The family of this 110-nucleotide RNA from Glycine max is "MIR1520 microRNA precursor family".
The source organism's lineage runs through Eukaryota, Euphyllophyta, eudicotyledons, Phaseoleae and Glycine subgen. Soja.
It scores 61 bits against the family's covariance model.
Rfam links the family to the GO terms miRNA-mediated post-transcriptional gene silencing and RISC complex.

Nucleotides: 110
Stems, first nucleotide, its partner, number of pairs: 016099004021094002025090003029086002032082001034080003
Number, partner (000 for none) and nucleotide at each position: 001000u002000u003000g004000u005000u006000a007000c008000a009000u010000a011000g012000g013000a014000a015000u016099g017098u018097c019096a020000c021094g022093u023000g024000u025090c026089a027088c028000a029086u030085u031000c032082u033000g034080a035079u036078u037000g038000g039000a040000c041000g042000a043000u044000g045000a046000c047000u048000a049000c050000a051000g052000a053000a054000u055000a056000u057000g058000c059000c060000a061000u062000g063000u064000a065000a066000u067000a068000g069000u070000c071000a072000u073000c074000g075000u076000c077000c078036a079035a080034u081000c082032a083000a084000a085030a086029a087000c088027g089026u090025g091000a092000c093022a094021u095000a096019u097018g098017a099016u100000a101000a102000u103000c104000a105000a106000c107000a108000u109000u110000u